[Rfam]
RNA sequence: GUUCCGCCACAACGGCUUCCUGACGUGGCGGUGAAACCCAAUGGAGCA
Numbered sequence: 001g002u003u004c005c006g007c008c009a010c011a012a013c014g015g016c017u018u019c020c021u022g023a024c025g026u027g028g029c030g031g032u033g034a035a036a037c038c039c040a041a042u043g044g045a046g047c048a
Stems, first nucleotide, its partner, number of pairs: 004031007013022002015047003019044002
Dot-bracket structure: ...(((((((..(([[[.[[))..)))))))...........]]]]].

Record summary
This 48-nucleotide RNA sequence from Brevirhabdus pacifica belongs to the Rfam family "SAM/SAH riboswitch aptamer". The base pairs follow the family's consensus structure, which is taken from published work.